[Rfam]
Shown here is an 84-nucleotide RNA from Ananas comosus, a member of the family "MIR528 microRNA precursor family". NCBI's taxonomy places the organism under Eukaryota, Streptophytina, Euphyllophyta, Magnoliopsida, Ananas. It scores 65 bits against the family's covariance model. Its family is annotated with miRNA-mediated post-transcriptional gene silencing and RISC complex in the Gene Ontology. The family's consensus secondary structure was predicted with RNAalifold.

RNA sequence: GUGGAAGGGGCAUGCAGAGGAGUGGAAAUGAUCAGAUGAUGUUUCCUGGGUCUUCUUUUAACUCCUGUGCUUGCCUCUUCCACC
Numbered sequence: 001g002u003g004g005a006a007g008g009g010g011c012a013u014g015c016a017g018a019g020g021a022g023u024g025g026a027a028a029u030g031a032u033c034a035g036a037u038g039a040u041g042u043u044u045c046c047u048g049g050g051u052c053u054u055c056u057u058u059u060a061a062c063u064c065c066u067g068u069g070c071u072u073g074c075c076u077c078u079u080c081c082a083c084c
Stems, first nucleotide, its partner, number of pairs: 001083012014070003018066005
Dot-bracket structure: ((((((((((((.(((.(((((.......................................))))).))).)))))))))))).